[Rfam]
RNA sequence: GCAGACUCACUCUGUGCUGAACUGCAGCCUUCAGUUCAGGUGCUUUUCUGUCUGCGAGAGUAAGAGCUCACAGGAGUGACGAUGGCCUUCUUUGCUGUGGAAGGCUGUUACAGUUGCUGUUGAGACAUGGCU
Numbered sequence: 001g002c003a004g005a006c007u008c009a010c011u012c013u014g015u016g017c018u019g020a021a022c023u024g025c026a027g028c029c030u031u032c033a034g035u036u037c038a039g040g041u042g043c044u045u046u047u048c049u050g051u052c053u054g055c056g057a058g059a060g061u062a063a064g065a066g067c068u069c070a071c072a073g074g075a076g077u078g079a080c081g082a083u084g085g086c087c088u089u090c091u092u093u094g095c096u097g098u099g100g101a102a103g104g105c106u107g108u109u110a111c112a113g114u115u116g117c118u119g120u121u122g123a124g125a126c127a128u129g130g131c132u
Base pairs, nucleotide, nucleotide: 001055002054003053004052005051006050014043015042016041017039018038019037020036022034023033024032068123069122070121071119072118073117075114077112078111083107084106085105086104087103088102089101090100091099
A member of the RNA family "Small nucleolar RNA SNORA77" from Motacilla alba, 132 nucleotides long. The match comes from Rfam's covariance-model search (44 bits). ACA63 (SNORA77) is a member of the H/ACA class of snoRNAs that guide the sites of modification of uridines to pseudouridines. Rfam links the family to the GO terms nucleolus and RNA processing. The literature on the family includes a 2006 paper in RNA by Schattner et al., "A computational screen for mammalian pseudouridylation guide H/ACA RNAs".